[Rfam]
RNA sequence: UGGAUAUGAUGACUGAUUAUCUGAGAUGAUGAUGAAACUGUUUCCAAAUUCCUCUAGAUAGUCAAGUGCUGAUCCAG
Numbered sequence: 001u002g003g004a005u006a007u008g009a010u011g012a013c014u015g016a017u018u019a020u021c022u023g024a025g026a027u028g029a030u031g032a033u034g035a036a037a038c039u040g041u042u043u044c045c046a047a048a049u050u051c052c053u054c055u056a057g058a059u060a061g062u063c064a065a066g067u068g069c070u071g072a073u074c075c076a077g
Base pairs, nucleotide, nucleotide: 001076002075003074004073